[Rfam]
Shown here is an 88-nucleotide RNA from Canis lupus, a member of the family "mir-8799 microRNA precursor family". The family's consensus secondary structure was predicted with RNAalifold. The family has 7 seed sequences and 20,638 matches in Rfam 15.1.
RNA sequence: CGGGGGAGGCCGGAUUCUGGGCUGUGUCCCGGUGCCCUGUGCUCGGGGCCUGUGCUGUUGGAUUUGCGCUCCCGCCCUGUAGCCCCCU
Numbered sequence: 001c002g003g004g005g006g007a008g009g010c011c012g013g014a015u016u017c018u019g020g021g022c023u024g025u026g027u028c029c030c031g032g033u034g035c036c037c038u039g040u041g042c043u044c045g046g047g048g049c050c051u052g053u054g055c056u057g058u059u060g061g062a063u064u065u066g067c068g069c070u071c072c073c074g075c076c077c078u079g080u081a082g083c084c085c086c087c088u
Stems, first nucleotide, its partner, number of pairs: 002087005009080002012076002017074001019072003023068004027062003030057006039050001041049003